[Rfam]
RNA sequence: GGGCGUUUUCAAGGAGCGCCUUUCAUUUUUUAUGUAUUGCUCCUUUUCGGGCUAGUUUAUUAAAUUUAUUUUUGCGCUUUCCAAAUCAAUGUAUAUGUGUUAUAUUGUUUAUGGGAAGUAGGUAAGCAUUUCGGUGCUUACC
Numbered sequence: 001g002g003g004c005g006u007u008u009u010c011a012a013g014g015a016g017c018g019c020c021u022u023u024c025a026u027u028u029u030u031u032a033u034g035u036a037u038u039g040c041u042c043c044u045u046u047u048c049g050g051g052c053u054a055g056u057u058u059a060u061u062a063a064a065u066u067u068a069u070u071u072u073u074g075c076g077c078u079u080u081c082c083a084a085a086u087c088a089a090u091g092u093a094u095a096u097g098u099g100u101u102a103u104a105u106u107g108u109u110u111a112u113g114g115g116a117a118g119u120a121g122g123u124a125a126g127c128a129u130u131u132c133g134g135u136g137c138u139u140a141c142c
Stems, first nucleotide, its partner, number of pairs: 001021008028064003032060003036056003039052004076119008084110002087107007121142009
Annotation:
This 142-nucleotide RNA sequence from Staphylococcus aureus belongs to the Rfam family "Small pathogenicity island RNA D". Rfam classes the family as a small RNA. It is one of the family's seed sequences. Taxonomically the source falls in Staphylococcus aureus (Bacteria, Bacillati, Staphylococcaceae, Staphylococcus).